[Rfam]
RNA sequence: CUGGGCGCACACGACUGGCGAAGGUGGGCAACCACCGGGGAGUGGCCCCAGCAGGGGAACUGACGAGCAUCGACCGCCUGGGUGCUCUCU
Numbered sequence: 001c002u003g004g005g006c007g008c009a010c011a012c013g014a015c016u017g018g019c020g021a022a023g024g025u026g027g028g029c030a031a032c033c034a035c036c037g038g039g040g041a042g043u044g045g046c047c048c049c050a051g052c053a054g055g056g057g058a059a060c061u062g063a064c065g066a067g068c069a070u071c072g073a074c075c076g077c078c079u080g081g082g083u084g085c086u087c088u089c090u
Stems, first nucleotide, its partner, number of pairs: 004049002007046002010044003015039002017078004024035004067085005
The record is a 90-nucleotide RNA from Nocardioides jishulii, which matches "ZMP/ZTP riboswitch aptamer (pfl RNA motif)" in Rfam. It scores 46 bits against the family's covariance model. The base pairs follow the family's consensus structure, which is taken from published work. Gene Ontology terms of the family: one-carbon metabolic process and regulation of purine nucleotide biosynthetic process. NCBI's taxonomy places the organism under Bacteria, Actinomycetota, Actinomycetes, Nocardioidaceae, Nocardioides.